[Rfam]
Shown here is a 131-nucleotide RNA from Varanus komodoensis, a member of the family "Small nucleolar RNA SNORA55".
The match comes from Rfam's covariance-model search (100 bits).
Gene Ontology terms of the family: RNA processing and nucleolus.
The source organism's lineage runs through Eukaryota, Bifurcata, Episquamata, Toxicofera and Varanus.
ACA55 is a member of the H/ACA class of snoRNA that guide the sites of modification of uridines to pseudouridines.
RNA sequence: GCACCUGAAUCUUUCCCAUGCUUUGUAGAACAAGUGCAGGCCUGGGGACAUGUGGUGCUAAAGCAACGCAGAGAAAAUCCAGACAAGUCACCUUCCUCUUGUCGACUUGUCUCUACGCCUUUGCAACACUG
Number, nucleotide and partner (000 for none) at each position: 001g058002c057003a056004c055005c054006u000007g000008a000009a000010u000011c000012u000013u048014u047015c046016c045017c044018a043019u000020g000021c040022u039023u000024u000025g000026u000027a000028g000029a000030a000031c000032a000033a000034g000035u000036g000037c000038a000039g022040g021041c000042c000043u018044g017045g016046g015047g014048a013049c000050a000051u000052g000053u000054g005055g004056u003057g002058c001059u000060a000061a000062a000063g000064c000065a000066a000067c000068g124069c123070a122071g121072a120073g119074a000075a000076a000077a000078u000079c000080c000081a112082g111083a110084c109085a108086a107087g106088u105089c000090a000091c000092c000093u000094u000095c000096c000097u000098c000099u000100u000101g000102u000103c000104g000105a088106c087107u086108u085109g084110u083111c082112u081113c000114u000115a000116c000117g000118c000119c073120u072121u071122u070123g069124c068125a000126a000127c000128a000129c000130u000131g000